Rfam assigns this 151-nucleotide RNA from Gorillibacterium sp. to the family "Ribosomal protein L10 leader".
From the family's description: This family is a putative r-protein leader autoregulatory structure found in B. subtilis and other low-GC Gram-positive bacteria. It is located in the 5' untranslated regions of mRNAs encoding ribosomal proteins L10 and L12 (rplJ-rplL).
RNA sequence: UUUUAAUUGAAUAUGUUGCCGUAGACAGUAGGUGCCCAACUUUUGGGCUUAAUUUCCUCCCGAGGCGUUCGGAUAUAGUUCGUCAUUUCACUCAUGAAAUUUCGAAAUUCGAGCCUUCGUGCGGAAGCACGGAGGCUUUUUCUAUGUUCGG
Numbered sequence: 001u002u003u004u005a006a007u008u009g010a011a012u013a014u015g016u017u018g019c020c021g022u023a024g025a026c027a028g029u030a031g032g033u034g035c036c037c038a039a040c041u042u043u044u045g046g047g048c049u050u051a052a053u054u055u056c057c058u059c060c061c062g063a064g065g066c067g068u069u070c071g072g073a074u075a076u077a078g079u080u081c082g083u084c085a086u087u088u089c090a091c092u093c094a095u096g097a098a099a100u101u102u103c104g105a106a107a108u109u110c111g112a113g114c115c116u117u118c119g120u121g122c123g124g125a126a127g128c129a130c131g132g133a134g135g136c137u138u139u140u141u142c143u144a145u146g147u148u149c150g151g
Stems, first nucleotide, its partner, number of pairs: 028060001030058003034048005113136010